[Rfam]
Nucleotides: 098
Stems, first nucleotide, its partner, number of pairs: 002097007013041001015040003021031003025070001027068002042062004047058002066090001071087006
Number, partner (000 for none) and nucleotide at each position: 001000u002097u003096c004095u005094c006093a007092u008091c009000a010000a011000g012000a013041g014000a015040g016039g017038u018000g019000g020000a021031g022030g023029g024000a025070c026000u027068g028067g029023c030022c031021c032000g033000a034000u035000g036000a037000a038017a039016c040015c041013c042062g043061g044060c045059a046000a047058c048057c049000a050000c051000a052000u053000g054000g055000a056000a057048g058047g059045u060044g061043c062042c063000a064000a065000u066090u067028c068027c069000u070025g071087c072086a073085g074084g075083a076082u077000a078000c079000u080000g081000g082076a083075u084074c085073c086072u087071g088000a089000c090066a091008g092007a093006u094005g095004a096003g097002g098000u
Background:
This 98-nucleotide sequence from Desulforamulus ferrireducens belongs to the Rfam family "SAM riboswitch aptamer (S box leader)". Its family is annotated with regulation of gene expression in the Gene Ontology. Taxonomically the source falls in Desulforamulus (Bacteria, Bacillati, Bacillota, Clostridia). It scores 92 bits against the family's covariance model.